This 81-nucleotide RNA sequence from Pelomonas sp. HMWF004 belongs to the Rfam family "SAH (S-adenosyl-L-homocysteine) riboswitch aptamer". The base pairs follow the family's consensus structure, which is taken from published work.
RNA sequence: UCAUCCGAGGAGCGCUGCGACGGGUUCGAGCCUUGCUCAGCCUGCCAGGCUCGGACCCUUCCUCAACGGCGCUCAUCGAUC
Numbered sequence: 001u002c003a004u005c006c007g008a009g010g011a012g013c014g015c016u017g018c019g020a021c022g023g024g025u026u027c028g029a030g031c032c033u034u035g036c037u038c039a040g041c042c043u044g045c046c047a048g049g050c051u052c053g054g055a056c057c058c059u060u061c062c063u064c065a066a067c068g069g070c071g072c073u074c075a076u077c078g079a080u081c
Stems, first nucleotide, its partner, number of pairs: 004055005021044006